A member of the RNA family "Small nucleolar RNA SNORA74", 199 nucleotides long.
Clan: SNORA74 clan.
Rfam describes the family as follows. U19 belongs to the H/ACA class of snoRNAs. snoRNAs bind a number of proteins (including dyskerin, Gar1p and Nop10p in the case of the H/ACA class) to form snoRNP complexes.
Rfam 15.1 lists 1,348 matches to the family in 628 species.
Its family is annotated with RNA processing and nucleolus in the Gene Ontology.
For this family Rfam cites "The family of box ACA small nucleolar RNAs is defined by an evolutionarily conserved secondary structure and ubiquitous sequence elements essential for RNA accumulation" (Ganot et al., Genes Dev, 1997).
[Rfam]
RNA sequence: UCCAGCAGUCGUUAGCUCUCCUGGCUAGUGUGAUGCCUGUGAUGGUGUUUCACUGUUGGAACAGCAAGCACUGUCUUAAUUGAGGCUUGGCUCCGGGUGCUGUUUUGGUGUGGGGCCAAGUAUACCUUUGGGCAGUGUUUUGCACUUCUGAGAGUGAAAUGACUCCUGUGGAGUCGGUCCUAAUCUGAGUGCAAACAAU
Numbered sequence: 001u002c003c004a005g006c007a008g009u010c011g012u013u014a015g016c017u018c019u020c021c022u023g024g025c026u027a028g029u030g031u032g033a034u035g036c037c038u039g040u041g042a043u044g045g046u047g048u049u050u051c052a053c054u055g056u057u058g059g060a061a062c063a064g065c066a067a068g069c070a071c072u073g074u075c076u077u078a079a080u081u082g083a084g085g086c087u088u089g090g091c092u093c094c095g096g097g098u099g100c101u102g103u104u105u106u107g108g109u110g111u112g113g114g115g116c117c118a119a120g121u122a123u124a125c126c127u128u129u130g131g132g133c134a135g136u137g138u139u140u141u142g143c144a145c146u147u148c149u150g151a152g153a154g155u156g157a158a159a160u161g162a163c164u165c166c167u168g169u170g171g172a173g174u175c176g177g178u179c180c181u182a183a184u185c186u187g188a189g190u191g192c193a194a195a196c197a198a199u
Base pairs, nucleotide, nucleotide: 001060002059003058004057005056006055007054008053009052011051015046016045017044019042020041021039023037024036025035068138069137070136071135072134073133074132075131076130082128083127084126085125088120094114096111098110099109100108101107140194141193142192143191144190145189146188147187156180158178160176161175162174163173164172165171166170